[Rfam]
RNA sequence: UAGUGUCACAGCUCUUUUAGAAUUUGUCUAGCAGGUUUUCUGGUCCUCAGUGGAAGACCCAA
Numbered sequence: 001u002a003g004u005g006u007c008a009c010a011g012c013u014c015u016u017u018u019a020g021a022a023u024u025u026g027u028c029u030a031g032c033a034g035g036u037u038u039u040c041u042g043g044u045c046c047u048c049a050g051u052g053g054a055a056g057a058c059c060c061a062a
Base pairs, nucleotide, nucleotide: 034059035058036057037056038055039054040053041052042051044049
Shown here is a 62-nucleotide RNA from Microcebus murinus, a member of the family "U7 small nuclear RNA". The match comes from Rfam's covariance-model search (62 bits).